[Rfam]
RNA sequence: AAAGUCAGCCACAAGCUUCUCUACAAGAAAUCUCAUUUCGAAACCAUCCCACGAACCAAUAAAGAUGUCUCCCUGCACCUGCAACUGCUGCAAAGGCGAGUGCAACGCUUGCUCCUGCAACAGCUGCAGCGUAAGUCAUU
Numbered sequence: 001a002a003a004g005u006c007a008g009c010c011a012c013a014a015g016c017u018u019c020u021c022u023a024c025a026a027g028a029a030a031u032c033u034c035a036u037u038u039c040g041a042a043a044c045c046a047u048c049c050c051a052c053g054a055a056c057c058a059a060u061a062a063a064g065a066u067g068u069c070u071c072c073c074u075g076c077a078c079c080u081g082c083a084a085c086u087g088c089u090g091c092a093a094a095g096g097c098g099a100g101u102g103c104a105a106c107g108c109u110u111g112c113u114c115c116u117g118c119a120a121c122a123g124c125u126g127c128a129g130c131g132u133a134a135g136u137c138a139u140u
Base pairs, nucleotide, nucleotide: 074098075097076096081091082090083089102127103126104125111118112117
Annotation
Shown here is a 140-nucleotide sequence from Talaromyces amestolkiae, a member of the family "A. fumigatus sRNA Afu_254". Pairs were carried over by alignment from the consensus structure, which was predicted with WAR. Rfam classes the family as a small RNA.